[Rfam]
RNA sequence: CUGCAACGUCGGUUUAGCCGACGUUGCAGUUAAGCUUGAAUCACAGCCCACAAAGCGGUGGUUCUUAAUUUGGAAAAUAUGAUGACCAGCAGGGGCAUCCGGGCUGGUACCCGGACUAUCUGCGGGAUCCGUGGUGGCUUACCAGUCGCUGCUUCAAGACUGGACAGUCAUGCGGUUUCUUCGCCGGUGGAGUCCCCUUACCGAGGGUGACCA
Numbered sequence: 001c002u003g004c005a006a007c008g009u010c011g012g013u014u015u016a017g018c019c020g021a022c023g024u025u026g027c028a029g030u031u032a033a034g035c036u037u038g039a040a041u042c043a044c045a046g047c048c049c050a051c052a053a054a055g056c057g058g059u060g061g062u063u064c065u066u067a068a069u070u071u072g073g074a075a076a077a078u079a080u081g082a083u084g085a086c087c088a089g090c091a092g093g094g095g096c097a098u099c100c101g102g103g104c105u106g107g108u109a110c111c112c113g114g115a116c117u118a119u120c121u122g123c124g125g126g127a128u129c130c131g132u133g134g135u136g137g138c139u140u141a142c143c144a145g146u147c148g149c150u151g152c153u154u155c156a157a158g159a160c161u162g163g164a165c166a167g168u169c170a171u172g173c174g175g176u177u178u179c180u181u182c183g184c185c186g187g188u189g190g191a192g193u194c195c196c197c198u199u200a201c202c203g204a205g206g207g208u209g210a211c212c213a
Base pairs, nucleotide, nucleotide: 001029002028003027004026005025006024007023008022009021010020011019012018013017038064039063040062041061042060043059046056047055091198092197093196094195095194096192098115099114100113101112102111103110116190117189118188119187120186122184123183124182126179127178129175130174134171135170136169137168138167139166142163143162144161145160146159147158
Shown here is a 213-nucleotide RNA sequence from Pseudomonas sp. TTU2014-080ASC, a member of the family "sucA-II RNA". Lineage of the source: Bacteria > Pseudomonadati > Gammaproteobacteria > Pseudomonadales > Pseudomonas. It scores 163 bits against the family's covariance model.